[Rfam]
RNA sequence: GACAUCAUCAACUUGGCUGUGAACUCUUGAUUUUAUACUUGAUAUCAUAGCCACUUUGAUGAGUUAGG
Numbered sequence: 001g002a003c004a005u006c007a008u009c010a011a012c013u014u015g016g017c018u019g020u021g022a023a024c025u026c027u028u029g030a031u032u033u034u035a036u037a038c039u040u041g042a043u044a045u046c047a048u049a050g051c052c053a054c055u056u057u058g059a060u061g062a063g064u065u066a067g068g
Base pairs, nucleotide, nucleotide: 005062006061007060008059009058010057011056014053015052016051017050018049019048020047021046022045025044027042
This 68-nucleotide sequence from Ceutorhynchus assimilis belongs to the Rfam family "mir-2 microRNA precursor family". Its family is annotated with miRNA-mediated post-transcriptional gene silencing and RISC complex in the Gene Ontology. Lineage of the source: Eukaryota > Allotriocarida > Hexapoda > Dicondylia > Ceutorhynchus. Pairs were carried over by alignment from the consensus structure, which was predicted with PFOLD.